[Rfam]
RNA sequence: UUCUCACAUGACUGUAAGUUGCUUUGGAUAAAGCAUCUGAUAAAUGGCAUAUA
Numbered sequence: 001u002u003c004u005c006a007c008a009u010g011a012c013u014g015u016a017a018g019u020u021g022c023u024u025u026g027g028a029u030a031a032a033g034c035a036u037c038u039g040a041u042a043a044a045u046g047g048c049a050u051a052u053a
Base pairs, nucleotide, nucleotide: 013042015039016038020035021034022033023032024031025030
RNA: UnaL2 LINE 3' element
Organism: Oncorhynchus mykiss